[Rfam]
RNA sequence: AUAUUUGUUAUGACAGUCACAGCCUAAAGCACAGAAGGCUGUGACCUGAUUGUUGAAUAU
Numbered sequence: 001a002u003a004u005u006u007g008u009u010a011u012g013a014c015a016g017u018c019a020c021a022g023c024c025u026a027a028a029g030c031a032c033a034g035a036a037g038g039c040u041g042u043g044a045c046c047u048g049a050u051u052g053u054u055g056a057a058u059a060u
Stems, first nucleotide, its partner, number of pairs: 001060005016045009
Dot-bracket structure: (((((..........(((((((((............)))))))))..........)))))